The record is a 367-nucleotide RNA from a Candidatus Krumholzibacteriia bacterium, which matches "Bacterial RNase P class A" in Rfam.
[Rfam]
Nucleotides: 367
Stems, first nucleotide, its partner, number of pairs: 001363008010353001012324007020039008044351003048348005053225004060259001062257002065221005070084005085099001086097004100216002105214002107210003122155002124151003132145005163181006182205001183202004188197003229281004239272005250264002253261001288307008
Number, partner (000 for none) and nucleotide at each position: 001363c002362g003361a004360g005359c006358g007357g008356g009000c010353g011000a012324g013323a014322u015321g016320a017319u018318c019000g020039c021038g022037g023036g024035c025034g026033g027032c028000u029000u030000u031000g032027g033026c034025c035024g036023u037022u038021c039020g040000a041000g042000g043000a044351a045350a046349g047000u048348c049347c050346g051345a052344g053225c054224a055223c056222c057000g058000c059000g060259g061000a062257g063256c064000a065221g066220g067219g068218u069217g070084c071083c072082g073081g074080g075000u076000a077000a078000c079000g080074c081073c082072c083071g084070g085099c086097g087096g088095a089094a090000g091000c092000g093000a094089u095088u096087c097086c098000a099085g100216g101215g102000a103000a104000a105214g106213u107210g108209c109208c110000a111000c112000a113000g114000a115000a116000a117000a118000c119000a120000c121000a122155c123154c124151g125150c126149c127000c128000a129000a130000g131000a132145c133144c134143g135142g136141c137000u138000u139000c140000g141136g142135c143134c144133g145132g146000g147000a148000c149126g150125g151124c152000a153000a154123g155122g156000g157000u158000g159000a160000a161000a162000a163181g164180g165179u166178g167177a168176g169000g170000u171000a172000a173000g174000a175000g176168c177167u178166c179165a180164c181163c182205g183202g184201g185200c186199c187000u188197c189196c190195g191000g192000u193000a194000a195190c196189g197188g198000c199186g200185g201184c202183c203000g204000u205182c206000a207000u208109g209108g210107u211000a212000a213106a214105c215101c216100c217069c218068a219067c220066c221065c222056g223055g224054u225053g226000c227000a228000a229281g230280a231279c232278c233000a234000a235000a236000u237000a238000g239272g240271a241270g242269g243268g244000c245000a246000g247000a248000g249000g250264u251263g252000c253261u254000c255000c256063g257062c258000c259060u260000c261253g262000u263251c264250a265000u266000g267000a268243c269242u270241c271240u272239c273000g274000g275000g276000u277000u278232g279231g280230u281229c282000g283000c284000u285000u286000g287000a288307g289306g290305u291304g292303u293302c294301c295300g296000g297000u298000a299000a300295c301294g302293g303292g304291c305290a306289u307288c308000c309000c310000a311000g312000a313000c314000a315000a316000a317000u318018g319017a320016u321015c322014g323013u324012c325000c326000u327000c328000c329000u330000u331000c332000g333000g334000g335000a336000g337000a338000a339000c340000a341000g342000a343000a344052c345051u346050c347049g348048g349046c350045u351044u352000a353010c354000g355000u356008c357007c358006c359005g360004c361003u362002c363001g364000g365000g366000c367000c